[Rfam]
Shown here is a 167-nucleotide sequence from Calorimonas adulescens, a member of the family "M-box riboswitch aptamer (ykoK leader)". A search with the family's covariance model found it, with a score of 149 bits. M-box riboswitch, also know as ykoK leader is described as a metaloregulatory RNA that sense divalent metals and function as a genetic control element of genes related to divalent metal transport in bacteria. Pairs were carried over by alignment from the consensus structure.

Nucleotides: 167
Stems, first nucleotide, its partner, number of pairs: 006162002009159002011153002013095001015148003020142003025138004030133003039113005045074005054065004080104004086098003115126003
Number, partner (000 for none) and nucleotide at each position: 001000a002000a003000u004000a005000u006162u007161c008000a009159c010158c011153g012152u013095u014000a015148g016147g017146u018000g019000a020142g021141g022140u023000u024000c025138c026137u027136a028135u029000c030133c031132g032131g033000a034000u035000a036000a037000a038000a039113g040112c041111u042110g043109c044000u045074g046073c047072c048071c049070g050000g051000a052000a053000a054065c055064a056063u057062c058000g059000a060000g061000a062057g063056a064055u065054g066000c067000c068000a069000a070049u071048g072047g073046g074045u075000a076000a077000a078000c079000a080104g081103g082102u083101a084000u085000u086098a087097c088096c089000g090000u091000g092000u093000c094000a095013a096088g097087g098086u099000u100000u101083u102082a103081c104080u105000u106000a107000a108000u109043g110042c111041a112040g113039c114000u115126g116125g117124g118000a119000u120000u121000u122000a123000u124117c125116c126115c127000u128000a129000u130000g131032c132031c133030g134000a135028a136027u137026a138025g139000u140022g141021c142020c143000a144000a145000a146017g147016c148015u149000c150000a151000c152012a153011c154000g155000g156000u157000g158010g159009g160000a161007g162006a163000u164000u165000u166000u167000c